RNA sequence: UGGUCGAACCGGCAAACUUGCUGAAAAGCAAGGACGCAAAGCUAAAGGGUCUAACGUUCGUUUCCGAACCAUGACAGCCUGGCCGCCGAA
Numbered sequence: 001u002g003g004u005c006g007a008a009c010c011g012g013c014a015a016a017c018u019u020g021c022u023g024a025a026a027a028g029c030a031a032g033g034a035c036g037c038a039a040a041g042c043u044a045a046a047g048g049g050u051c052u053a054a055c056g057u058u059c060g061u062u063u064c065c066g067a068a069c070c071a072u073g074a075c076a077g078c079c080u081g082g083c084c085g086c087c088g089a090a
Stems, first nucleotide, its partner, number of pairs: 012037002017032006041083003046080003049075003056069004

This 90-nucleotide RNA sequence from Cohnella pontilimi belongs to the Rfam family "c-di-GMP-I riboswitch aptamer". It scores 72 bits against the family's covariance model. The base pairs follow the family's consensus structure, which is taken from published work. Its family is annotated with cyclic-di-GMP binding in the Gene Ontology. Rfam's curators write: GEMM was predicted in a large-scale screen for bacterial structured RNA regulatory elements.